[Rfam]
RNA: SAM riboswitch aptamer (S box leader)
RNA sequence: AUCUUAUCAAGAGAGGUGGAGGGACUGGCCCUAUGAAGCCCGGCAACCGGUAUUUUAAUACAAUGGUGCCAAUUCCUGCAGUAUUGCUUUUGCAAUACUGAAAGAUGAGGA
Numbered sequence: 001a002u003c004u005u006a007u008c009a010a011g012a013g014a015g016g017u018g019g020a021g022g023g024a025c026u027g028g029c030c031c032u033a034u035g036a037a038g039c040c041c042g043g044c045a046a047c048c049g050g051u052a053u054u055u056u057a058a059u060a061c062a063a064u065g066g067u068g069c070c071a072a073u074u075c076c077u078g079c080a081g082u083a084u085u086g087c088u089u090u091u092g093c094a095a096u097a098c099u100g101a102a103a104g105a106u107g108a109g110g111a
Stems, first nucleotide, its partner, number of pairs: 002110007013041001015040003021031003025078001027076002042070004047066002050061003074103001079100008